[Rfam]
RNA: SAM riboswitch aptamer (S box leader)
Nucleotides: 120
Base pairs, nucleotide, nucleotide: 003118004117005116006115007114008113013042014041015040016039017038021031022030023029026091027090028089043084044083045082046081048080049079052075053074054073088112093109094108095107096106097105098104
Number, partner (000 for none) and nucleotide at each position: 001000u002000a003118c004117u005116u006115a007114u008113c009000c010000a011000g012000a013042a014041a015040g016039a017038c018000a019000g020000a021031g022030g023029g024000a025000a026091a027090g028089g029023c030022c031021c032000u033000a034000u035000g036000a037000c038017g039016u040015c041014u042013u043084a044083g045082c046081a047000a048080c049079c050000u051000g052075u053074a054073c055000c056000g057000g058000c059000u060000a061000c062000a063000a064000a065000a066000u067000a068000g069000u070000u071000g072000g073054g074053u075052a076000a077000a078000a079049g080048g081046u082045g083044c084043u085000a086000a087000c088112u089028c090027c091026u092000g093109c094108u095107c096106c097105a098104u099000u100000u101000a102000a103000a104098a105097u106096g107095g108094g109093g110000a111000a112088a113008g114007a115006u116005a117004a118003g119000a120000u